[Rfam]
RNA sequence: GCAGGGGAAGCCGAAAACCUUAUAGAGUAGGCA
Numbered sequence: 001g002c003a004g005g006g007g008a009a010g011c012c013g014a015a016a017a018c019c020u021u022a023u024a025g026a027g028u029a030g031g032c033a
Stems, first nucleotide, its partner, number of pairs: 003020003010032003
RNA: DUF805b RNA